[Rfam]
RNA sequence: CUCUUAUCAAGAGUAGGUGGAGGGACAAGCCCAAUGAAACCCGGCAACCGGUUUAGCUGUAUGGUAGAAAACACGGUGCUAAUUCUUGCAGUCAUGACAGGCUGAAAGAUGAGAG
Dot-bracket structure: ((((((((....(..(((...(((.[[[[)))......))))((((.(((.((...............)).)..))))))...(]]]](((((......)))))..)))))))))
The record is a 115-nucleotide RNA sequence from Seinonella peptonophila, which matches "SAM riboswitch aptamer (S box leader)" in Rfam. It scores 82 bits against the family's covariance model. The organism belongs to Seinonella, within Bacteria. Pairs were carried over by alignment from the consensus structure, which is taken from published work.